[Rfam]
RNA: Makes More Granules Regulator RNA (mmgR)
RNA sequence: UGCUGCUGCCCUUCUUGGGCGUUUCCUCCCUAAACUUCGGCCGCUGGCAACAGCGGCCUUUUUCUUGGCUUAU
Numbered sequence: 001u002g003c004u005g006c007u008g009c010c011c012u013u014c015u016u017g018g019g020c021g022u023u024u025c026c027u028c029c030c031u032a033a034a035c036u037u038c039g040g041c042c043g044c045u046g047g048c049a050a051c052a053g054c055g056g057c058c059u060u061u062u063u064c065u066u067g068g069c070u071u072a073u
Base pairs, nucleotide, nucleotide: 008020009019010018011017039058040057041056042055043054044053045052046051